RNA sequence: UGGAGCGUGUGUCCUGGUGACACCUCUGAACAUUGAUCGCUGGAAAUUCGGCUGAUCUGUCCAGUUUCGUGUCCCUAUUAUGCACACAUUCUGACACUUGGAGUUCCCGCUGUCUCGUCGCACGGUUGAGCUCCUUUCUAAAUUGGUCCUUUGCAGGGCCUUGGUAUAAAAGUACGACCUGGCUUCUGAAAUUUGUAAAAUUAGGGAAGUUGGGGGAACUCAGCCUUGUUUCUGACGCUCUAGUACGGCCCUGCCAAGGUGGGGUAGGCUGCCAUUGUUUUUG
Numbered sequence: 001u002g003g004a005g006c007g008u009g010u011g012u013c014c015u016g017g018u019g020a021c022a023c024c025u026c027u028g029a030a031c032a033u034u035g036a037u038c039g040c041u042g043g044a045a046a047u048u049c050g051g052c053u054g055a056u057c058u059g060u061c062c063a064g065u066u067u068c069g070u071g072u073c074c075c076u077a078u079u080a081u082g083c084a085c086a087c088a089u090u091c092u093g094a095c096a097c098u099u100g101g102a103g104u105u106c107c108c109g110c111u112g113u114c115u116c117g118u119c120g121c122a123c124g125g126u127u128g129a130g131c132u133c134c135u136u137u138c139u140a141a142a143u144u145g146g147u148c149c150u151u152u153g154c155a156g157g158g159c160c161u162u163g164g165u166a167u168a169a170a171a172g173u174a175c176g177a178c179c180u181g182g183c184u185u186c187u188g189a190a191a192u193u194u195g196u197a198a199a200a201u202u203a204g205g206g207a208a209g210u211u212g213g214g215g216g217a218a219c220u221c222a223g224c225c226u227u228g229u230u231u232c233u234g235a236c237g238c239u240c241u242a243g244u245a246c247g248g249c250c251c252u253g254c255c256a257a258g259g260u261g262g263g264g265u266a267g268g269c270u271g272c273c274a275u276u277g278u279u280u281u282u283g
Base pairs, nucleotide, nucleotide: 001242002241003240004239005238006237007236008235015080016079017078018077026064027063028062030060031059032058035057036056037055038054039052040051041050042049247273248272249271250268251267252266253265254264
Rfam assigns this 283-nucleotide RNA sequence from Magallana gigas to the family "Arthropod 7SK RNA". Lineage of the source: Eukaryota > Eumetazoa > Protostomia > Ostreidae > Magallana. For this family Rfam cites "Arthropod 7SK RNA" (Gruber et al., Mol Biol Evol, 2008).